[Rfam]
RNA: Small Cajal body specific RNA 23
RNA sequence: AUGCUCACAAGCACACUUAUCCUGCCCUGUGGCUGUGAUGGGUAGCUGGGAAAAUGUGAGCUAGAGCAUGAGUAUUGCUUUGGGAGUGUCCCAUUCCAGGCCAUGUGGGACACUACAGUUAUCAAUACAACA
Numbered sequence: 001a002u003g004c005u006c007a008c009a010a011g012c013a014c015a016c017u018u019a020u021c022c023u024g025c026c027c028u029g030u031g032g033c034u035g036u037g038a039u040g041g042g043u044a045g046c047u048g049g050g051a052a053a054a055u056g057u058g059a060g061c062u063a064g065a066g067c068a069u070g071a072g073u074a075u076u077g078c079u080u081u082g083g084g085a086g087u088g089u090c091c092c093a094u095u096c097c098a099g100g101c102c103a104u105g106u107g108g109g110a111c112a113c114u115a116c117a118g119u120u121a122u123c124a125a126u127a128c129a130a131c132a
Stems, first nucleotide, its partner, number of pairs: 003061006012050001014048001072128001074126004080118003085114008093104002